The family of this 74-nucleotide sequence from Pipistrellus kuhlii is "mir-9223 microRNA precursor family". A search with the family's covariance model found it, with a score of 77 bits. Rfam 15.1 lists 14,641 matches to the family in 28 species. The source organism's lineage runs through Eukaryota, Opisthokonta, Metazoa, Eutheria and Pipistrellus.

RNA sequence: GGCAGUUCUCAGGUGAGGCACCUGGAAUCCGGCUCCCUCCUCUCUGGUUCCGGGUGCGUCACCUGAGGACUGCA
Numbered sequence: 001g002g003c004a005g006u007u008c009u010c011a012g013g014u015g016a017g018g019c020a021c022c023u024g025g026a027a028u029c030c031g032g033c034u035c036c037c038u039c040c041u042c043u044c045u046g047g048u049u050c051c052g053g054g055u056g057c058g059u060c061a062c063c064u065g066a067g068g069a070c071u072g073c074a
Stems, first nucleotide, its partner, number of pairs: 002073002005070012019056011031044002